[Rfam]
RNA sequence: GCCGCUCUGGAAAGCAGUUCUCCACAGAACUCGCCGACGGGGAAAGUCCUCCACAAGAGGGCGAAACUCUCAGGCACUCAUGACAGAGGGGGAGCU
Numbered sequence: 001g002c003c004g005c006u007c008u009g010g011a012a013a014g015c016a017g018u019u020c021u022c023c024a025c026a027g028a029a030c031u032c033g034c035c036g037a038c039g040g041g042g043a044a045a046g047u048c049c050u051c052c053a054c055a056a057g058a059g060g061g062c063g064a065a066a067c068u069c070u071c072a073g074g075c076a077c078u079c080a081u082g083a084c085a086g087a088g089g090g091g092g093a094g095c096u
Stems, first nucleotide, its partner, number of pairs: 002091002005088005016031004033075003036071002040069003046062005